[Rfam]
RNA sequence: AGAGAGCUAUUGAUCGGUUUCGUUCCCCCGCACGUUCCGAUCAGUGGAAAGGCGUCGGCGCAAGCCGGCGCCUUUUUCCGUUC
Numbered sequence: 001a002g003a004g005a006g007c008u009a010u011u012g013a014u015c016g017g018u019u020u021c022g023u024u025c026c027c028c029c030g031c032a033c034g035u036u037c038c039g040a041u042c043a044g045u046g047g048a049a050a051g052g053c054g055u056c057g058g059c060g061c062a063a064g065c066c067g068g069c070g071c072c073u074u075u076u077u078c079c080g081u082u083c
Stems, first nucleotide, its partner, number of pairs: 010044008049074008058065002

Notes
Bradyrhizobiaceae sRNA BjrC68: an 83-nucleotide RNA sequence from Aquabacter spiritensis. A search with the family's covariance model found it, with a score of 45 bits. The base pairs follow the family's consensus structure.